Archaeal large subunit ribosomal RNA: a 103-nucleotide part of an RNA from Methanothermobacter thermautotrophicus. The family's consensus secondary structure is taken from published work. On this family, see Yusupov et al., Science 2001: "Crystal structure of the ribosome at 5.5 A resolution". NCBI's taxonomy places the organism under Archaea, Methanobacteriales, Methanobacteriaceae, Methanothermobacter, Methanothermobacter thermautotrophicus.

RNA sequence: GGCACGGCAUGGAAGGAAUGAGGCUUGCCCUGUAAGAAACCAUGGCAACAUGGGAGUAUGUGGGCUGGCUGAUCAGUGUCGUGUCAUCCGUCUUGAAACACGG
Numbered sequence: 001g002g003c004a005c006g007g008c009a010u011g012g013a014a015g016g017a018a019u020g021a022g023g024c025u026u027g028c029c030c031u032g033u034a035a036g037a038a039a040c041c042a043u044g045g046c047a048a049c050a051u052g053g054g055a056g057u058a059u060g061u062g063g064g065c066u067g068g069c070u071g072a073u074c075a076g077u078g079u080c081g082u083g084u085c086a087u088c089c090g091u092c093u094u095g096a097a098a099c100a101c102g103g
Stems, first nucleotide, its partner, number of pairs: 001085010015074002023069003027065003035059001040053005088103004
Gene Ontology terms of the family: structural constituent of ribosome and ribosome.